RNA sequence: UCCUCGCUCAAAGAAUCGCAACGAAGCACACGCACAGAGUGGCACCGCCAUCUCGCCUUGCUUUGGGAGAAAGUCCCCGGACAUCGCUCCACAGCGCACUUUCAGCAACGAUCCGCCAUAGAAGCGCGGCCUCUUACAGCACCAGCGCCCUCGCUCUCUCGACGCUUGCACUCUUGGCCCGCGCGUUCCUGCUGCUACGGGUGGAGGAGCUGGCACCAGGGCGAUGAUAUGAGUCCGCUGGCCACCUUGCCCGCCGCCUAGGGUCCGCGUCGAGCCAAGAGGAGACGAGAGAUGGCGAGGCGCCGGGUAGGAGGGUCUUCUCGUCCAGUUUAUGGUUAUGCGAUUGCCCUUGCGCUCUCCGGUAACACGGGGACGUCGCAGGGGUAACUCAAUGGGGCUUAUUCUUGACGCGAGG
Numbered sequence: 001u002c003c004u005c006g007c008u009c010a011a012a013g014a015a016u017c018g019c020a021a022c023g024a025a026g027c028a029c030a031c032g033c034a035c036a037g038a039g040u041g042g043c044a045c046c047g048c049c050a051u052c053u054c055g056c057c058u059u060g061c062u063u064u065g066g067g068a069g070a071a072a073g074u075c076c077c078c079g080g081a082c083a084u085c086g087c088u089c090c091a092c093a094g095c096g097c098a099c100u101u102u103c104a105g106c107a108a109c110g111a112u113c114c115g116c117c118a119u120a121g122a123a124g125c126g127c128g129g130c131c132u133c134u135u136a137c138a139g140c141a142c143c144a145g146c147g148c149c150c151u152c153g154c155u156c157u158c159u160c161g162a163c164g165c166u167u168g169c170a171c172u173c174u175u176g177g178c179c180c181g182c183g184c185g186u187u188c189c190u191g192c193u194g195c196u197a198c199g200g201g202u203g204g205a206g207g208a209g210c211u212g213g214c215a216c217c218a219g220g221g222c223g224a225u226g227a228u229a230u231g232a233g234u235c236c237g238c239u240g241g242c243c244a245c246c247u248u249g250c251c252c253g254c255c256g257c258c259u260a261g262g263g264u265c266c267g268c269g270u271c272g273a274g275c276c277a278a279g280a281g282g283a284g285a286c287g288a289g290a291g292a293u294g295g296c297g298a299g300g301c302g303c304c305g306g307g308u309a310g311g312a313g314g315g316u317c318u319u320c321u322c323g324u325c326c327a328g329u330u331u332a333u334g335g336u337u338a339u340g341c342g343a344u345u346g347c348c349c350u351u352g353c354g355c356u357c358u359c360c361g362g363u364a365a366c367a368c369g370g371g372g373a374c375g376u377c378g379c380a381g382g383g384g385u386a387a388c389u390c391a392a393u394g395g396g397g398c399u400u401a402u403u404c405u406u407g408a409c410g411c412g413a414g415g
Stems, first nucleotide, its partner, number of pairs: 002415006008408004014345006022067001023064005037054003040050004071400003075397004249317001251315001255313001257311004264307004275299001347384008